[Rfam]
RNA sequence: UUGACCGUGCACGACCAGCGGGGGUCGUCCUGGCCGAGUGCCUCGUCGCCGAACUGGUCGCCGUCGGUGACGACGCCGAGUGCCUCGGUGGCGCCGUAUUUGCCGACGGCCUGCUUCUCCAGGCGGCCGUGGGCGACGAUGUAGGUCUCGGUGACCGGCGUGCCGGCCGCCACGAUCACCUCUCCGGGCGCGACCUCGCGCGGCGUGAACGUGGCGGCGAGCGCGGCCAGCACGUCGAGGUCGUCGUAGCCGCGCAGCGCCCGCAGCUCGGCCAGCGUCUCGGGGAUGACGCGGACGUCGCCGGCCCCCUCCCGCACCACGCUCACCCGCCCGCGCCCCACCCGGUGGGUGAGGCGGCGGUUGACCCGGUAGGUGCCGCCGCGCACGUCCACCCACGGCAGCAUGCGCAGCAGCCACCUGGAGGUGAUCGCCUGCAUCUGGGGGCGGGUCUUGGUGGUCGUGGCCAGGGUGCGGGCGGCCCUGGUGUCCAGGCUCAGCCGCUGUGGGG
Number, nucleotide and partner (000 for none) at each position: 001u000002u000003g000004a000005c000006c000007g392008u391009g390010c000011a388012c387013g000014a000015c000016c383017a000018g330019c329020g000021g327022g326023g000024g000025u000026c321027g320028u319029c000030c000031u316032g315033g000034c000035c000036g312037a000038g310039u000040g308041c000042c000043u000044c000045g305046u304047c303048g302049c000050c300051g299052a298053a000054c000055u232056g000057g000058u229059c000060g227061c226062c225063g224064u223065c105066g104067g103068u102069g000070a000071c000072g000073a000074c000075g097076c000077c096078g095079a000080g000081u000082g094083c093084c000085u091086c090087g000088g000089u000090g086091g085092c000093g083094c082095c078096g077097u075098a000099u000100u000101u000102g068103c067104c066105g065106a000107c000108g000109g000110c000111c000112u000113g222114c221115u220116u217117c216118u000119c000120c213121a212122g000123g210124c000125g000126g204127c203128c202129g201130u000131g199132g000133g197134c000135g195136a000137c000138g000139a000140u192141g191142u000143a000144g000145g189146u188147c187148u186149c000150g184151g183152u178153g177154a000155c000156c174157g173158g000159c000160g000161u000162g000163c000164c000165g000166g000167c000168c000169g000170c000171c000172a000173c157174g156175a000176u000177c153178a152179c000180c000181u000182c000183u151184c150185c000186g148187g147188g146189c145190g000191c141192g140193a000194c000195c135196u000197c133198g000199c131200g000201c129202g128203g127204c126205g000206u000207g000208a000209a000210c123211g000212u121213g120214g000215c000216g117217g116218c000219g000220a115221g114222c113223g064224c063225g062226g061227c060228c000229a058230g000231c000232a055233c000234g296235u295236c294237g000238a000239g000240g290241u289242c288243g287244u286245c285246g000247u000248a000249g000250c283251c282252g281253c000254g279255c000256a278257g276258c275259g000260c271261c270262c000263g000264c000265a000266g000267c000268u000269c000270g261271g260272c000273c000274a000275g258276c257277g000278u256279c254280u000281c252282g251283g250284g000285g245286a244287u243288g242289a241290c240291g000292c000293g000294g236295a235296c234297g000298u052299c051300g050301c000302c048303g047304g046305c045306c000307c000308c040309c000310u038311c000312c036313c000314g000315c032316a031317c000318c000319a028320c027321g026322c000323u000324c000325a000326c022327c021328c000329g019330c018331c345332c344333g343334c000335g000336c000337c000338c000339c000340a000341c000342c000343c333344g332345g331346u000347g000348g000349g000350u000351g000352a000353g000354g382355c381356g380357g379358c378359g377360g376361u000362u000363g000364a374365c373366c372367c000368g000369g000370u000371a000372g366373g365374u364375g000376c360377c359378g358379c357380c356381g355382c354383g016384c000385a000386c000387g012388u011389c000390c009391a008392c007393c000394c434395a433396c000397g431398g000399c000400a428401g000402c426403a425404u424405g000406c421407g000408c000409a000410g418411c000412a000413g000414c000415c000416a000417c000418c410419u000420g000421g406422a000423g000424g404425u403426g402427a000428u400429c000430g000431c397432c000433u395434g394435c000436a000437u000438c000439u000440g479441g000442g000443g476444g000445c474446g000447g472448g000449u000450c468451u467452u466453g465454g464455u463456g000457g000458u000459c000460g000461u000462g000463g455464c454465c453466a452467g451468g450469g000470u000471g000472c447473g000474g445475g000476c443477g000478g000479c440480c507481c506482u000483g502484g501485u500486g000487u000488c000489c000490a000491g498492g000493c000494u000495c000496a000497g000498c491499c000500g485501c484502u483503g000504u000505g000506g481507g480508g000
RNA: Saccharopolyspora sRNA 350